[Rfam]
Shown here is an 80-nucleotide sequence from Caenorhabditis auriculariae, a member of the family "SmY spliceosomal RNA". The literature on the family includes a 2009 paper in RNA Biol by Jones et al., "A survey of nematode SmY RNAs". The family has 61 seed sequences and 408 matches in Rfam 15.1.
RNA sequence: GAAAAUCUAUUGAUAUUCUCAGGGCUUUCCAUAAGACCCCUAGAAAAGUUUUGGCAACCUUUGCUCUAAUAGUAAAGGUU
Numbered sequence: 001g002a003a004a005a006u007c008u009a010u011u012g013a014u015a016u017u018c019u020c021a022g023g024g025c026u027u028u029c030c031a032u033a034a035g036a037c038c039c040c041u042a043g044a045a046a047a048g049u050u051u052u053g054g055c056a057a058c059c060u061u062u063g064c065u066c067u068a069a070u071a072g073u074a075a076a077g078g079u080u
Stems, first nucleotide, its partner, number of pairs: 022039003026035003057079009
It is annotated as a spliceosomal small nuclear RNA.